Record summary
Glycine riboswitch aptamer: a 95-nucleotide RNA from Nitrincola tibetensis.

[Rfam]
RNA sequence: UGAAAUAUAUCGGGAGAGACUGCAGGCUUAGCUGUAGCAGCGCCGAAGGAGCAACCACCCCGGAAACUCUCAGGCAAAUGGACCGAUUAUUGAAU
Number, nucleotide and partner (000 for none) at each position: 001u000002g000003a000004a000005a000006u000007a000008u000009a087010u086011c085012g084013g083014g000015a000016g000017a000018g000019a000020c040021u039022g038023c037024a000025g000026g000027c000028u000029u000030a000031g000032c000033u000034g000035u000036a000037g023038c022039a021040g020041c000042g075043c074044c073045g071046a070047a000048g000049g069050a068051g067052c000053a000054a000055c063056c062057a000058c000059c000060c000061c000062g056063g055064a000065a000066a000067c051068u050069c049070u046071c045072a000073g044074g043075c042076a000077a000078a000079u000080g000081g000082a000083c013084c012085g011086a010087u009088u000089a000090u000091u000092g000093a000094a000095u000

NCBI's taxonomy places the organism under Bacteria, Pseudomonadota, Gammaproteobacteria, Oceanospirillales, Nitrincola.